RNA sequence: UUGGCGUCCGGGUCGAUCUCACGGGUGACGAUGAGGUAGUUGCGCAGCGCGAUCGCGUGCAGCUGCUC
Numbered sequence: 001u002u003g004g005c006g007u008c009c010g011g012g013u014c015g016a017u018c019u020c021a022c023g024g025g026u027g028a029c030g031a032u033g034a035g036g037u038a039g040u041u042g043c044g045c046a047g048c049g050c051g052a053u054c055g056c057g058u059g060c061a062g063c064u065g066c067u068c
Stems, first nucleotide, its partner, number of pairs: 004063002008059001012029002016026003035056001038053001040052005
A member of the RNA family "ASdes TB sRNA" from Mycolicibacterium phlei, 68 nucleotides long. Taxonomically the source falls in Mycolicibacterium phlei (Bacteria, Actinomycetota, Actinomycetes, Mycobacteriaceae).